[Rfam]
RNA sequence: CUGCGUGAGACGCCGUCGGCAAGUUCCGACUAGACGGUUCGCCAACCCUCGUGGGUGGCUCGGAUGACGAAGCGGCCGACGUUAGACGACGUCGGCGAGAGGGCCUC
Numbered sequence: 001c002u003g004c005g006u007g008a009g010a011c012g013c014c015g016u017c018g019g020c021a022a023g024u025u026c027c028g029a030c031u032a033g034a035c036g037g038u039u040c041g042c043c044a045a046c047c048c049u050c051g052u053g054g055g056u057g058g059c060u061c062g063g064a065u066g067a068c069g070a071a072g073c074g075g076c077c078g079a080c081g082u083u084a085g086a087c088g089a090c091g092u093c094g095g096c097g098a099g100a101g102g103g104c105c106u107c
Stems, first nucleotide, its partner, number of pairs: 001072002004069001009040001012038006022031002041059003046055003075096009

The family of this 107-nucleotide RNA sequence from Mycobacterium intermedium is "SAM (S-adenosyl methionine) riboswitch aptamer". Rfam's curators write: SAM-IV is a mRNA element that regulates gene expression via direct sensing of S-adenosylmethionine (SAM or AdoMet). SAM-IV riboswitches share conserved nucleotide positions with the previously described SAM-I riboswitches sequence analysis and molecular recognition experiments suggest that SAM-I and SAM-IV riboswitches share similar ligand binding sites, but have different scaffolds.